RNA sequence: GAUUACAAUGAUGGCUGACCAGGGCAACCUGACCUAUACAGGCCUCUGCUAUGGGGGUGAUGGCCAGUCCUGGUGUCUGAGUGAUU
Numbered sequence: 001g002a003u004u005a006c007a008a009u010g011a012u013g014g015c016u017g018a019c020c021a022g023g024g025c026a027a028c029c030u031g032a033c034c035u036a037u038a039c040a041g042g043c044c045u046c047u048g049c050u051a052u053g054g055g056g057g058u059g060a061u062g063g064c065c066a067g068u069c070c071u072g073g074u075g076u077c078u079g080a081g082u083g084a085u086u
Stems, first nucleotide, its partner, number of pairs: 001086006010077003018074008028062001030060001032058004039053002041050003